[Rfam]
Notes:
A member of the RNA family "Molybdenum/Tungsten riboswitch aptamer (Moco RNA motif)" from Clostridium magnum, 123 nucleotides long. A search with the family's covariance model found it, with a score of 63 bits.
RNA sequence: UAAAUUUAAUAACUCCGACUCUAUAUUACCUAAAAGAAUCAUUUCUUAUGGUGAAUAGAACCGCAGGGUAUUGUUGGAAACUUCAGUGCCUACCUUAUGGAAAGGAGUAAAAGAAUAUACCUG
Numbered sequence: 001u002a003a004a005u006u007u008a009a010u011a012a013c014u015c016c017g018a019c020u021c022u023a024u025a026u027u028a029c030c031u032a033a034a035a036g037a038a039u040c041a042u043u044u045c046u047u048a049u050g051g052u053g054a055a056u057a058g059a060a061c062c063g064c065a066g067g068g069u070a071u072u073g074u075u076g077g078a079a080a081c082u083u084c085a086g087u088g089c090c091u092a093c094c095u096u097a098u099g100g101a102a103a104g105g106a107g108u109a110a111a112a113g114a115a116u117a118u119a120c121c122u123g
Stems, first nucleotide, its partner, number of pairs: 004116001006114001012108005020059005026054005034047004066091008076081001093099001
Gene Ontology terms of the family: tungstate binding, regulation of gene expression and molybdenum ion binding. A reference for the family is Regulski et al. (2008), "in molybdenum cofactor and tungsten cofactor metabolism", Mol Microbiol.